[Rfam]
RNA sequence: GGUUUCUCUGAGCUUCUUUACAGUGUUGCCUUGUAGCCUGGUGAUCAAGCAGCAUUGUACAGGGCUAUCAGGGCGACU
Numbered sequence: 001g002g003u004u005u006c007u008c009u010g011a012g013c014u015u016c017u018u019u020a021c022a023g024u025g026u027u028g029c030c031u032u033g034u035a036g037c038c039u040g041g042u043g044a045u046c047a048a049g050c051a052g053c054a055u056u057g058u059a060c061a062g063g064g065c066u067a068u069c070a071g072g073g074c075g076a077c078u
Stems, first nucleotide, its partner, number of pairs: 014064004019059010030049004
RNA: mir-103/107 microRNA precursor family
Organism: Chanos chanos